[Rfam]
RNA sequence: GCCGAGCCCGGUAGCGUGGGCCUGUAAUCCAAGUGGAGGCGCGAGGGUAAAGGAACGUUCAUUCUGGUCAGAAGACUGAGUCAUGUAUGGCCAAUUUCUGGCUCGCCCGUUCCAAGCCAAGAUCUGAGCCGUGUGAUCCAGGCGAAGGUGUGGAUCACUCUGCUCCUAGAGCUGGGGGCAAUGCGUGAGGCUGGUUUCACAGAGCAGCGAUAACCUCACUCUCUUGGCAGUGGAAGGAUAACGGGCCGGUGCCAACUGGACUCAUAUGGUCUGAUGUUCAGAUCUAGCUGAACCUUCACUUUU
Numbered sequence: 001g002c003c004g005a006g007c008c009c010g011g012u013a014g015c016g017u018g019g020g021c022c023u024g025u026a027a028u029c030c031a032a033g034u035g036g037a038g039g040c041g042c043g044a045g046g047g048u049a050a051a052g053g054a055a056c057g058u059u060c061a062u063u064c065u066g067g068u069c070a071g072a073a074g075a076c077u078g079a080g081u082c083a084u085g086u087a088u089g090g091c092c093a094a095u096u097u098c099u100g101g102c103u104c105g106c107c108c109g110u111u112c113c114a115a116g117c118c119a120a121g122a123u124c125u126g127a128g129c130c131g132u133g134u135g136a137u138c139c140a141g142g143c144g145a146a147g148g149u150g151u152g153g154a155u156c157a158c159u160c161u162g163c164u165c166c167u168a169g170a171g172c173u174g175g176g177g178g179c180a181a182u183g184c185g186u187g188a189g190g191c192u193g194g195u196u197u198c199a200c201a202g203a204g205c206a207g208c209g210a211u212a213a214c215c216u217c218a219c220u221c222u223c224u225u226g227g228c229a230g231u232g233g234a235a236g237g238a239u240a241a242c243g244g245g246c247c248g249g250u251g252c253c254a255a256c257u258g259g260a261c262u263c264a265u266a267u268g269g270u271c272u273g274a275u276g277u278u279c280a281g282a283u284c285u286a287g288c289u290g291a292a293c294c295u296u297c298a299c300u301u302u303u
Stems, first nucleotide, its partner, number of pairs: 001040003004023001006021005028037003043303006050296004056290002058287002063282005069276002073272005078263005085256002088254003092251002098249008107237002110235005116228007126165004131160001133158008142149002166171001173218005184209003191202003